RNA sequence: UCUGGAUAAACUUGUAUUCUCCCAAGAGAGAGGAGCAAGUCACUUUACAGAAUUAAAUUAAGUAAAACAUUUAAGGAUUGCCAAAGGCUUACAUACAAGCGAAAUCUUGAAAUGUUAGGAUAGCCGUAUGUCCUUUAAUACUAUUUGUAUUAUAAAAAUAAUCUUGAAUUAACUUUAGUCAAGUUUUCGAGUUACGGUAGA
Numbered sequence: 001u002c003u004g005g006a007u008a009a010a011c012u013u014g015u016a017u018u019c020u021c022c023c024a025a026g027a028g029a030g031a032g033g034a035g036c037a038a039g040u041c042a043c044u045u046u047a048c049a050g051a052a053u054u055a056a057a058u059u060a061a062g063u064a065a066a067a068c069a070u071u072u073a074a075g076g077a078u079u080g081c082c083a084a085a086g087g088c089u090u091a092c093a094u095a096c097a098a099g100c101g102a103a104a105u106c107u108u109g110a111a112a113u114g115u116u117a118g119g120a121u122a123g124c125c126g127u128a129u130g131u132c133c134u135u136u137a138a139u140a141c142u143a144u145u146u147g148u149a150u151u152a153u154a155a156a157a158a159u160a161a162u163c164u165u166g167a168a169u170u171a172a173c174u175u176u177a178g179u180c181a182a183g184u185u186u187u188c189g190a191g192u193u194a195c196g197g198u199a200g201a
Stems, first nucleotide, its partner, number of pairs: 001051004006046001008044001010040006017034005022028001068114005075107005087100002090097001117134005123198006129158001136152005163191006170181001
The family of this 201-nucleotide RNA sequence is "IS605-orfB-I RNA". Pairs were carried over by alignment from the consensus structure, which is taken from published work. The sequence is in the family's curated seed alignment.